[Rfam]
RNA sequence: ACACAGAAGGGAGGUGGUUCGGCAGAUGUAUGACAACCGGACGCGUGAGGUGGCUGCGGGCUAGCGGCCCGUCACCACACCGAGUGCGGUGCCGGACCAGCGCGUGAAAGACGCGCGCAGCCGGCCCAAUCCCAAGCAGUCACCCGACCCGCGAGUCGCCGGUAAGUCCGGCCGGCUCCUCUCCGGAGGAACCAGACUCGCGGGUCGUCUGCG
Numbered sequence: 001a002c003a004c005a006g007a008a009g010g011g012a013g014g015u016g017g018u019u020c021g022g023c024a025g026a027u028g029u030a031u032g033a034c035a036a037c038c039g040g041a042c043g044c045g046u047g048a049g050g051u052g053g054c055u056g057c058g059g060g061c062u063a064g065c066g067g068c069c070c071g072u073c074a075c076c077a078c079a080c081c082g083a084g085u086g087c088g089g090u091g092c093c094g095g096a097c098c099a100g101c102g103c104g105u106g107a108a109a110g111a112c113g114c115g116c117g118c119a120g121c122c123g124g125c126c127c128a129a130u131c132c133c134a135a136g137c138a139g140u141c142a143c144c145c146g147a148c149c150c151g152c153g154a155g156u157c158g159c160c161g162g163u164a165a166g167u168c169c170g171g172c173c174g175g176c177u178c179c180u181c182u183c184c185g186g187a188g189g190a191a192c193c194a195g196a197c198u199c200g201c202g203g204g205u206c207g208u209c210u211g212c213g
Stems, first nucleotide, its partner, number of pairs: 014057005059126004064121002067118002070115001071112002145207013158176006

About this RNA:
The family of this 213-nucleotide RNA sequence is "Actinobacteria sRNA Ms_IGR-5". The match comes from Rfam's covariance-model search (90 bits). The base pairs follow the family's consensus structure. It is annotated as a small RNA.